Shown here is a 63-nucleotide RNA from Rhizobacter terrae, a member of the family "Betaproteobacteria toxic small RNA". A reference for the family is Kimelman et al. (2012), "A vast collection of microbial genes that are toxic to bacteria", Genome Res. The base pairs follow the family's consensus structure, which was predicted with WAR. The organism belongs to Rhizobacter, within Bacteria.
RNA sequence: UGUCUCCUCCACCUCCUCCAUUGGUGGAUUCAACCCGAGGUCUCACGACCUCGGGUUUUUCUU
Numbered sequence: 001u002g003u004c005u006c007c008u009c010c011a012c013c014u015c016c017u018c019c020a021u022u023g024g025u026g027g028a029u030u031c032a033a034c035c036c037g038a039g040g041u042c043u044c045a046c047g048a049c050c051u052c053g054g055g056u057u058u059u060u061c062u063u
Stems, first nucleotide, its partner, number of pairs: 008028006033056008